[Rfam]
RNA sequence: AUAAUAGAUGGAAAAAUUACAGUUCUUUCUCUCACAGAGAGCUUGUGGUUGCUGGAAACAAGCAGAGAAAGCUGUAAAGUUGGGUUCAUCUGAAACGAGAGAAGAAAACAUCAUUCUCAAGGGAGUGCCCUUUAUCGCACAGCCUGUUACAGGAGAUAUCUGAGACAGGAAUGAGAGAUAGGAGAAAUCCUAUAAUUGAGGUGGCACCGCGAAUUUCGUCCUCACG
Numbered sequence: 001a002u003a004a005u006a007g008a009u010g011g012a013a014a015a016a017u018u019a020c021a022g023u024u025c026u027u028u029c030u031c032u033c034a035c036a037g038a039g040a041g042c043u044u045g046u047g048g049u050u051g052c053u054g055g056a057a058a059c060a061a062g063c064a065g066a067g068a069a070a071g072c073u074g075u076a077a078a079g080u081u082g083g084g085u086u087c088a089u090c091u092g093a094a095a096c097g098a099g100a101g102a103a104g105a106a107a108a109c110a111u112c113a114u115u116c117u118c119a120a121g122g123g124a125g126u127g128c129c130c131u132u133u134a135u136c137g138c139a140c141a142g143c144c145u146g147u148u149a150c151a152g153g154a155g156a157u158a159u160c161u162g163a164g165a166c167a168g169g170a171a172u173g174a175g176a177g178a179u180a181g182g183a184g185a186a187a188u189c190c191u192a193u194a195a196u197u198g199a200g201g202u203g204g205c206a207c208c209g210c211g212a213a214u215u216u217c218g219u220c221c222u223c224a225c226g
Stems, first nucleotide, its partner, number of pairs: 007090004019075004030066003041063006097118004103114001120131003178193006198223004209219004
T-box leader: a 226-nucleotide sequence from Streptococcus pneumoniae. NCBI's taxonomy places the organism under Bacteria, Bacillati, Lactobacillales, Streptococcus, Streptococcus pneumoniae. Uncharged tRNA acts as the effector for transcription antitermination of genes in the T-box leader family. T-boxes are found upstream of many aminoacyl-tRNA synthetase genes and some amino acid biosynthetic genes usually in Gram-positive bacteria. The anticodon of a specific tRNA base pairs to a specifier sequence within the T-box motif, and the NCCA acceptor tail of the tRNA base pairs to a conserved bulge in the T-box antiterminator hairpin. The family's consensus secondary structure is taken from published work.